RNA sequence: CAGCAAGGACGACCUUGCCAUCCAUCUUCACUCGGGGACGGCCCC
Dot-bracket structure: ..((((((....))))))...............((((....))))
Numbered sequence: 001c002a003g004c005a006a007g008g009a010c011g012a013c014c015u016u017g018c019c020a021u022c023c024a025u026c027u028u029c030a031c032u033c034g035g036g037g038a039c040g041g042c043c044c045c
Stems, first nucleotide, its partner, number of pairs: 003018006034045004
Background:
Shown here is a 45-nucleotide sequence from Paraburkholderia dinghuensis, a member of the family "Guanidine-II riboswitch aptamer (mini-ykkC)". NCBI's taxonomy places the organism under Bacteria, Pseudomonadati, Pseudomonadota, Betaproteobacteria, Paraburkholderia. For this family Rfam cites "The Structure of the Guanidine-II Riboswitch" (Huang et al., Cell Chem Biol, 2017).